A member of the RNA family "Bacillaceae-1 RNA" from Oceanobacillus picturae, 67 nucleotides long.
Rfam 15.1 lists 5,721 matches to the family in 247 species.
The base pairs follow the family's consensus structure, which is taken from published work.
It is annotated as a small RNA.
It scores 56 bits against the family's covariance model.

Nucleotides: 067
Base pairs, nucleotide, nucleotide: 012048013047014046015045016044017043025039026038027037028036053067054066055065056064057063
Number, partner (000 for none) and nucleotide at each position: 001000u002000a003000u004000u005000a006000a007000a008000g009000a010000a011000c012048g013047c014046c015045g016044a017043c018000u019000a020000a021000a022000c023000a024000c025039g026038a027037c028036c029000c030000u031000u032000c033000c034000u035000a036028g037027g038026u039025c040000a041000a042000c043017g044016u045015c046014g047013g048012c049000a050000u051000g052000a053067c054066c055065u056064g057063g058000g059000u060000c061000c062000u063057c064056c065055a066054g067053g